Rfam assigns this 104-nucleotide sequence from Clostridium isatidis to the family "SAM riboswitch aptamer (S box leader)". NCBI's taxonomy places the organism under Bacteria, Bacillota, Clostridia, Clostridiaceae, Clostridium. A search with the family's covariance model found it, with a score of 83 bits. Its Rfam clan is "SAM clan".

RNA sequence: UUCUUAUCAAGAGAGGUGGAGGGAAAAGGGCCCUGUGAAACCCGGCAACCUGCUUUAAUAAAAGUGUGGUGCCAAUUCCUGCAAUUAAUUUUGCAAGAUAAGAA
Numbered sequence: 001u002u003c004u005u006a007u008c009a010a011g012a013g014a015g016g017u018g019g020a021g022g023g024a025a026a027a028g029g030g031c032c033c034u035g036u037g038a039a040a041c042c043c044g045g046c047a048a049c050c051u052g053c054u055u056u057a058a059u060a061a062a063a064g065u066g067u068g069g070u071g072c073c074a075a076u077u078c079c080u081g082c083a084a085u086u087a088a089u090u091u092u093g094c095a096a097g098a099u100a101a102g103a104a
Base pairs, nucleotide, nucleotide: 001104002103003102004101005100006099007098008097013043015042016041017040021033022032023031028080029079030078044073045072046071047070049069050068054062077096082093083092084091